[Rfam]
A member of the RNA family "FMN riboswitch aptamer (RFN element)" from Thomasclavelia spiroformis, 137 nucleotides long. Pairs were carried over by alignment from the consensus structure, which is taken from published work. The match comes from Rfam's covariance-model search (115 bits).

RNA sequence: AAUCUGUUUCAGGGCGAGGUGUAAUUCCUCACUGGCGGUGAAAAGUUUUAGCUGUAAGUCCGCGAGCUUGAUAUUUUCAAAGCAGAAUGGGUUAGAAUCCCAUACCAACGGUAUAGUCCGGAUGAAAGAAACAAAAU
Numbered sequence: 001a002a003u004c005u006g007u008u009u010c011a012g013g014g015c016g017a018g019g020u021g022u023a024a025u026u027c028c029u030c031a032c033u034g035g036c037g038g039u040g041a042a043a044a045g046u047u048u049u050a051g052c053u054g055u056a057a058g059u060c061c062g063c064g065a066g067c068u069u070g071a072u073a074u075u076u077u078c079a080a081a082g083c084a085g086a087a088u089g090g091g092u093u094a095g096a097a098u099c100c101c102a103u104a105c106c107a108a109c110g111g112u113a114u115a116g117u118c119c120g121g122a123u124g125a126a127a128g129a130a131a132c133a134a135a136a137u
Stems, first nucleotide, its partner, number of pairs: 003135001005133006017029003031117002033107002035063004058105002066083003087103005109120003